[Rfam]
RNA sequence: GCUCUGGCAUAGUAGCACAGUUACUUCGUGCAAUUAUUACGCAGACUUCUCGCACGGGUCGUCAAACUGGUAACGCGGGUUCGAAUCCCGCAGGACUGUGCACGCUGUCCGGAGUUUUU
Numbered sequence: 001g002c003u004c005u006g007g008c009a010u011a012g013u014a015g016c017a018c019a020g021u022u023a024c025u026u027c028g029u030g031c032a033a034u035u036a037u038u039a040c041g042c043a044g045a046c047u048u049c050u051c052g053c054a055c056g057g058g059u060c061g062u063c064a065a066a067c068u069g070g071u072a073a074c075g076c077g078g079g080u081u082c083g084a085a086u087c088c089c090g091c092a093g094g095a096c097u098g099u100g101c102a103c104g105c106u107g108u109c110c111g112g113a114g115u116u117u118u119u
Stems, first nucleotide, its partner, number of pairs: 002114006012103002017099004025085004
RNA: Vault RNA
Organism: Notodromas monacha